[Rfam]
Nucleotides: 114
Stems, first nucleotide, its partner, number of pairs: 002057006016043003022037004072114002080104003085099002
Number, partner (000 for none) and nucleotide at each position: 001000u002057g003056g004055g005054a006053g007052g008000c009000u010000g011000a012000u013000a014000c015000a016043c017042a018041a019000a020000u021000u022037g023036a024035g025034c026000u027000a028000a029000g030000u031000a032000c033000u034025g035024c036023u037022c038000u039000a040000a041018u042017u043016g044000c045000c046000g047000c048000c049000a050000u051000u052007c053006c054005u055004c056003c057002c058000u059000a060000g061000a062000a063000u064000a065000a066000a067000c068000u069000g070000u071000u072114a073113u074000u075000u076000u077000u078000a079000u080104u081103g082102c083000u084000u085099u086098c087000a088000g089000a090000g091000a092000g093000g094000a095000a096000g097000g098086g099085a100000g101000a102082g103081c104080g105000a106000c107000a108000g109000a110000g111000a112000g113073a114072u
Small Cajal body specific RNA 8: a 114-nucleotide RNA sequence from Cnephaeus nilssonii. NCBI's taxonomy places the organism under Eukaryota, Chordata, Gnathostomata, Dipnotetrapodomorpha, Cnephaeus. Rfam's curators write: scaRNAs are a specific class of small nuclear RNAs which localise to the Cajal bodies and guide the modification of RNA polymerase II transcribed spliceosomal RNAs U1, U2, U4, U5 and U12. The match comes from Rfam's covariance-model search (66 bits). The literature on the family includes a 2001 paper in EMBO J by Huttenhofer et al., "RNomics: an experimental approach that identifies 201 candidates for novel, small, non-messenger RNAs in mouse". Its family is annotated with nucleolus, Cajal body and RNA processing in the Gene Ontology.